[Rfam]
RNA sequence: GAUUGCAUAAGACCCUCUCUGUAAUCGCGGCUG
Number, nucleotide and partner (000 for none) at each position: 001g026002a025003u024004u023005g022006c021007a020008u000009a000010a000011g000012a000013c000014c000015c000016u000017c000018u000019c000020u007021g006022u005023a004024a003025u002026c001027g000028c000029g000030g000031c000032u000033g000
Notes: The family of this 33-nucleotide RNA sequence from Indolivaga macrotermitis is "S4-Bacteroidia ribosomal protein leader". Rfam classes the family as a cis-regulatory leader. On this family, see Eckert and Weinberg, BMC Microbiol 2020: "Discovery of 20 novel ribosomal leader candidates in bacteria and archaea". The match comes from Rfam's covariance-model search (41 bits).